[Rfam]
The family of this 79-nucleotide RNA from Planctomycetes bacterium MalM25 is "c-di-GMP-I riboswitch aptamer".
The base pairs follow the family's consensus structure, which is taken from published work.
From the family's description: GEMM was predicted in a large-scale screen for bacterial structured RNA regulatory elements.
A search with the family's covariance model found it, with a score of 56 bits.
A reference for the family is Weinberg et al. (2007), "Identification of 22 candidate structured RNAs in bacteria using the CMfinder comparative genomics pipeline", Nucleic Acids Res.
RNA sequence: CAUUGAGAAAGGCAAACCCGUCGCGAGGCGGGGAACGCAAAGCCUAGGGCCCCGACGUUGGGGUGGCCGGGCUGCCGAU
Numbered sequence: 001c002a003u004u005g006a007g008a009a010a011g012g013c014a015a016a017c018c019c020g021u022c023g024c025g026a027g028g029c030g031g032g033g034a035a036c037g038c039a040a041a042g043c044c045u046a047g048g049g050c051c052c053c054g055a056c057g058u059u060g061g062g063g064u065g066g067c068c069g070g071g072c073u074g075c076c077g078a079u
Stems, first nucleotide, its partner, number of pairs: 012038002017032006041073004047068002049064006